RNA sequence: ACGUGAGGACGACCUCACCUCUUGAAAACUGGCAGGGGACGACCCCG
Numbered sequence: 001a002c003g004u005g006a007g008g009a010c011g012a013c014c015u016c017a018c019c020u021c022u023u024g025a026a027a028a029c030u031g032g033c034a035g036g037g038g039a040c041g042a043c044c045c046c047g
Base pairs, nucleotide, nucleotide: 001020003018004017005016006015007014008013035046036045037044038043
RNA: Guanidine-II riboswitch aptamer (mini-ykkC)